[Rfam]
Shown here is a 376-nucleotide sequence from Anabaenopsis elenkinii, a member of the family "Bacterial RNase P class A". Lineage of the source: Bacteria > Cyanobacteriota > Nostocales > Anabaenopsis > Anabaenopsis elenkinii. By type it is a ribozyme.

RNA sequence: AGAGUAGGCGCAGGCGGUUGCAGAUUAGUCAGAGUGACUGGUUUGAGGAAAGUCCGGGCUCCCGAAAGCCCAAACUUGCUGGAUAACGCCCAGUGCGAGCGAUCGCGAGGAUAGUGCCACAGAAAGAUACCGCCUUUUUUAAAGGUAAGGGUGCAAAGGUGCGGUAAGAGCGCACCAGCACAACCGAGAGGUUGUGGCUCGGUAAACCCCGGUUGGGAGCAAGGCCAAGGGAAACUAAGGUUGGUCUUUUACCAGUUUCCAUUUAUGAGAGCCGCUAGAGGCGUUUGGUAACAAGCGUCCCAGAUAGAUAACUGCCCUCAAAGGUGUUUUUUAACACUCGGCGAGAACAGAACCCGGCUUAUGUCCGACUCUCUCC
Number, nucleotide and partner (000 for none) at each position: 001a372002g371003a370004g369005u368006a000007g366008g365009c000010g364011c363012a362013g316014g315015c314016g313017g312018u311019u310020g000021c045022a044023g043024a042025u041026u040027a039028g038029u037030c000031a000032g000033a000034g000035u000036g000037a029038c028039u027040g026041g025042u024043u023044u022045g021046a000047g000048g000049a000050a360051a359052g358053u000054c357055c356056g355057g354058g353059c219060u218061c217062c216063c000064g000065a000066a000067a000068g248069c000070c000071c000072a000073a214074a213075c212076u000077u211078g210079c093080u092081g091082g090083a000084u000085a000086a000087c000088g000089c000090c082091c081092a080093g079094u108095g106096c105097g104098a103099g000100c000101g000102a000103u098104c097105g096106c095107g000108a094109g209110g208111a000112u000113a000114g207115u206116g203117c202118c201119a000120c000121a000122g000123a000124a000125a000126g000127a000128u000129a000130c150131c149132g146133c145134c144135u143136u142137u141138u000139u000140u000141a137142a136143a135144g134145g133146u132147a000148a000149g131150g130151g000152u000153g000154c000155a000156a000157a000158g176159g175160u174161g173162c172163g171164g000165u000166a000167a000168g000169a000170g000171c163172g162173c161174a160175c159176c158177a000178g198179c196180a195181c194182a193183a192184c191185c190186g000187a000188g000189a000190g185191g184192u183193u182194g181195u180196g179197g000198c178199u000200c000201g118202g117203u116204a000205a000206a115207c114208c110209c109210c078211g077212g075213u074214u073215g000216g062217g061218a060219g059220c000221a000222a000223g273224g272225c271226c000227a000228a000229g000230g260231g259232a258233a257234a256235c255236u000237a000238a000239g253240g252241u251242u000243g249244g000245u000246c000247u000248u068249u243250u000251a241252c240253c239254a000255g235256u234257u233258u232259c231260c230261a000262u000263u000264u000265a000266u000267g000268a000269g000270a000271g225272c224273c223274g000275c000276u000277a000278g000279a000280g299281g298282c297283g296284u295285u294286u293287g292288g000289u000290a000291a000292c287293a286294a285295g284296c283297g282298u281299c280300c000301c000302a000303g000304a000305u000306a000307g000308a000309u000310a019311a018312c017313u016314g015315c014316c013317c000318u000319c000320a000321a000322a000323g000324g000325u000326g000327u000328u000329u000330u000331u000332u000333a000334a000335c000336a000337c000338u000339c000340g000341g000342c000343g000344a000345g000346a000347a000348c000349a000350g000351a000352a000353c058354c057355c056356g055357g054358c052359u051360u050361a000362u012363g011364u010365c008366c007367g000368a005369c004370u003371c002372u001373c000374u000375c000376c000